[Rfam]
RNA sequence: GGCCUUCAGACCGGGGCUGUAUCAUAACCAGGCUGUGGCUGCGUGAAGCAUGGGUAUGAUACGACCUCAGUCUGGAGGCG
Numbered sequence: 001g002g003c004c005u006u007c008a009g010a011c012c013g014g015g016g017c018u019g020u021a022u023c024a025u026a027a028c029c030a031g032g033c034u035g036u037g038g039c040u041g042c043g044u045g046a047a048g049c050a051u052g053g054g055u056a057u058g059a060u061a062c063g064a065c066c067u068c069a070g071u072c073u074g075g076a077g078g079c080g
Stems, first nucleotide, its partner, number of pairs: 002079006009072003013068004018063009028053003032049002034045003